A member of the RNA family "Fluoride riboswitch aptamer (crcB RNA motif)" from Pelotomaculum isophthalicicum, 57 nucleotides long.
Rfam 15.1 lists 2,293 matches to the family in 1,982 species.
Gene Ontology terms of the family: positive regulation of gene expression and response to fluoride.
RNA sequence: AUAAUAUAUGGCGAUGGAGCUCGCCAAACGCGAAUCGCUAAUGGCUCCUACCGGUGA
Numbered sequence: 001a002u003a004a005u006a007u008a009u010g011g012c013g014a015u016g017g018a019g020c021u022c023g024c025c026a027a028a029c030g031c032g033a034a035u036c037g038c039u040a041a042u043g044g045c046u047c048c049u050a051c052c053g054g055u056g057a
Stems, first nucleotide, its partner, number of pairs: 010025004016048006030038002